[Rfam]
RNA sequence: CAGUUUUUCAUGGUAUUUAGAUUUAAGGUUAAUAACAAAGAUUGGUUGCCGGGAGGCAACCAUUUCUUUUUUA
Number, nucleotide and partner (000 for none) at each position: 001c000002a000003g000004u000005u000006u000007u000008u000009c000010a000011u000012g000013g000014u000015a000016u000017u000018u000019a000020g000021a000022u000023u000024u000025a000026a000027g000028g000029u000030u000031a000032a000033u000034a000035a000036c000037a000038a000039a000040g000041a000042u000043u000044g061045g060046u059047u058048g057049c056050c055051g000052g000053g000054a000055g050056g049057c048058a047059a046060c045061c044062a000063u000064u000065u000066c000067u000068u000069u000070u000071u000072u000073a000
The family of this 73-nucleotide sequence from Coprobacter fastidiosus is "Bacteroidetes FopS (family of paralogous sRNAs)". A search with the family's covariance model found it, with a score of 63 bits. Gene Ontology term of the family: sRNA-mediated gene silencing.